Molybdenum/Tungsten riboswitch aptamer (Moco RNA motif): a 121-nucleotide sequence from Lawsonibacter hominis.
The base pairs follow the family's consensus structure, which is taken from published work.
[Rfam]
RNA sequence: UCCGUCCCGAUUCUUCGAGCCUGUCCGCCUAAAACAGCCGUACUGUCACGGCGGCGGGCCGGGGUGCGCCCGGAAACAGGCGUGCCUACCCGUUUUGUAAAGGAGAAUGCAACAUGAAAAA
Numbered sequence: 001u002c003c004g005u006c007c008c009g010a011u012u013c014u015u016c017g018a019g020c021c022u023g024u025c026c027g028c029c030u031a032a033a034a035c036a037g038c039c040g041u042a043c044u045g046u047c048a049c050g051g052c053g054g055c056g057g058g059c060c061g062g063g064g065u066g067c068g069c070c071c072g073g074a075a076a077c078a079g080g081c082g083u084g085c086c087u088a089c090c091c092g093u094u095u096u097g098u099a100a101a102g103g104a105g106a107a108u109g110c111a112a113c114a115u116g117a118a119a120a121a
Stems, first nucleotide, its partner, number of pairs: 011107006019059007027052003034046003062087009072077001088098002

A search with the family's covariance model found it, with a score of 57 bits.